[Rfam]
RNA sequence: UGAGAGAACUCGGGUGAAGGAACUAGGCAAAAUGGUGCCGUAACUUCGGGAGAAGGCACGCCGGCGUAGGGUGACGAGACUUGCUCUCCAAGCCCGAACCGGUCGAAGAUACCAGGUGGCUGCAACUGUUUAUUAAAAACACAGCACUCUGCUAACGCGCAAGCGGACGUAUAGGGUGUGACGCCUGCCCGGUGCCGGAAGGUUAAAUGAUGGUGUUAGCCGCAAGGCGAAGCUCUUGAUUGAAGCCCCGGUAAACGGCGGCCGUAACUAUAACGGUCCUAAGGUAGCGAAAUUCCUUGUCGGGUAAGUUCCGACCUGCACGAAUGGCGUAAUGAUGGCCACGCUGUCUCCACCCGAGACUCA
Dot-bracket structure: ((((....((((((((.(((..............(((((....(....).....)))))(((((.............(.((((.....)))).)....)))))(...).......(((((((((..(((.........)))..(((((((((...(((....)))...)..))))))))..((((.(((..(((((((..(((...(....((.((..((......))...)).))....)...))))))))..)))))((((((.......))))))(...).....(.........((((((.....))))))).........))))...)).)))))))....))).)))))))).))))
Numbered sequence: 001u002g003a004g005a006g007a008a009c010u011c012g013g014g015u016g017a018a019g020g021a022a023c024u025a026g027g028c029a030a031a032a033u034g035g036u037g038c039c040g041u042a043a044c045u046u047c048g049g050g051a052g053a054a055g056g057c058a059c060g061c062c063g064g065c066g067u068a069g070g071g072u073g074a075c076g077a078g079a080c081u082u083g084c085u086c087u088c089c090a091a092g093c094c095c096g097a098a099c100c101g102g103u104c105g106a107a108g109a110u111a112c113c114a115g116g117u118g119g120c121u122g123c124a125a126c127u128g129u130u131u132a133u134u135a136a137a138a139a140c141a142c143a144g145c146a147c148u149c150u151g152c153u154a155a156c157g158c159g160c161a162a163g164c165g166g167a168c169g170u171a172u173a174g175g176g177u178g179u180g181a182c183g184c185c186u187g188c189c190c191g192g193u194g195c196c197g198g199a200a201g202g203u204u205a206a207a208u209g210a211u212g213g214u215g216u217u218a219g220c221c222g223c224a225a226g227g228c229g230a231a232g233c234u235c236u237u238g239a240u241u242g243a244a245g246c247c248c249c250g251g252u253a254a255a256c257g258g259c260g261g262c263c264g265u266a267a268c269u270a271u272a273a274c275g276g277u278c279c280u281a282a283g284g285u286a287g288c289g290a291a292a293u294u295c296c297u298u299g300u301c302g303g304g305u306a307a308g309u310u311c312c313g314a315c316c317u318g319c320a321c322g323a324a325u326g327g328c329g330u331a332a333u334g335a336u337g338g339c340c341a342c343g344c345u346g347u348c349u350c351c352a353c354c355c356g357a358g359a360c361u362c363a
Stems, first nucleotide, its partner, number of pairs: 001363004009358008018349003035059005044049001060103005078094001080092004104108001116342007123334002127141003144179008152169001156165003182329004187259003192256002194252005201247003207241001212236002215233002219228002260278006279283001289316001299315006

The record is a 363-nucleotide part of an RNA from Halovibrio variabilis, which matches "Bacterial large subunit ribosomal RNA" in Rfam. The base pairs follow the family's consensus structure, which is taken from published work.